This 86-nucleotide RNA sequence from Fusarium sp. NRRL 66182 belongs to the Rfam family "tRNA".
RNA sequence: CCCCGAGUAGCUCAGCUGGAAGAGCGUUCGGCUGUAACUGUUAAACCGUCACCGAAAGGUCACUUGUUCGAUCCAGGUCUCGGGGA
Numbered sequence: 001c002c003c004c005g006a007g008u009a010g011c012u013c014a015g016c017u018g019g020a021a022g023a024g025c026g027u028u029c030g031g032c033u034g035u036a037a038c039u040g041u042u043a044a045a046c047c048g049u050c051a052c053c054g055a056a057a058g059g060u061c062a063c064u065u066g067u068u069c070g071a072u073c074c075a076g077g078u079c080u081c082g083g084g085g086a
Stems, first nucleotide, its partner, number of pairs: 001085007010025004027056005062078005